[Rfam]
Description
ffh sRNA: a 52-nucleotide RNA sequence from Albidovulum denitrificans. A search with the family's covariance model found it, with a score of 64 bits. On this family, see Meyer et al., BMC Genomics 2009: "Identification of candidate structured RNAs in the marine organism 'Candidatus Pelagibacter ubique'". It is annotated as a small RNA. Pairs were carried over by alignment from the consensus structure, which is taken from published work. Taxonomically the source falls in Albidovulum (Bacteria, Pseudomonadota, Alphaproteobacteria, Rhodobacterales).
RNA sequence: CCCAGCCGGGAUCGCCAUCCGUCAGCGCGUUGCGCCCACGGGUGCGUUUGUC
Numbered sequence: 001c002c003c004a005g006c007c008g009g010g011a012u013c014g015c016c017a018u019c020c021g022u023c024a025g026c027g028c029g030u031u032g033c034g035c036c037c038a039c040g041g042g043u044g045c046g047u048u049u050g051u052c
Stems, first nucleotide, its partner, number of pairs: 016044007025035004